Rfam assigns this 114-nucleotide sequence from Drosophila navojoa to the family "Potassium channel RNA editing signal". Rfam classes the family as a cis-regulatory element. Gene Ontology term of the family: adenosine to inosine editing. About the family: This family represents a group of sequences related to the human potassium channel Kv1.1 hairpin element which directs the efficient modification of an adenosine to inosine by an adenosine deaminase acting on RNA (ADAR). The ADAR modification causes an isoleucine/valine recoding event which lies in the ion-conducting pore of the potassium channel. It is thought that this editing event targets the process of fast inactivation and allows a more rapid recovery from inactivation at negative potentials.

RNA sequence: CUUAGCUAUGGUGACAUGGUGCCGGAGACAAUAGCUGGCAAAAUAGUUGGUGGUGUUUGCUCGCUCAGCGGAGUGCUGGUCAUCGCCUUACCUGUACCUGUUAUUGUAUCGAAC
Numbered sequence: 001c002u003u004a005g006c007u008a009u010g011g012u013g014a015c016a017u018g019g020u021g022c023c024g025g026a027g028a029c030a031a032u033a034g035c036u037g038g039c040a041a042a043a044u045a046g047u048u049g050g051u052g053g054u055g056u057u058u059g060c061u062c063g064c065u066c067a068g069c070g071g072a073g074u075g076c077u078g079g080u081c082a083u084c085g086c087c088u089u090a091c092c093u094g095u096a097c098c099u100g101u102u103a104u105u106g107u108a109u110c111g112a113a114c
Stems, first nucleotide, its partner, number of pairs: 002113001005110001007108005013102004018097001021095002037077004050062001